[Rfam]
RNA sequence: GGGCGGGGACGACCCCGUUCCUCUGAUUCCAACGUGGGGACGGCCUCA
Numbered sequence: 001g002g003g004c005g006g007g008g009a010c011g012a013c014c015c016c017g018u019u020c021c022u023c024u025g026a027u028u029c030c031a032a033c034g035u036g037g038g039g040a041c042g043g044c045c046u047c048a
Base pairs, nucleotide, nucleotide: 001020002019003018004017005016006015007014008013035048036047037046038045039044
RNA: Guanidine-II riboswitch aptamer (mini-ykkC)
Organism: Cystobacter ferrugineus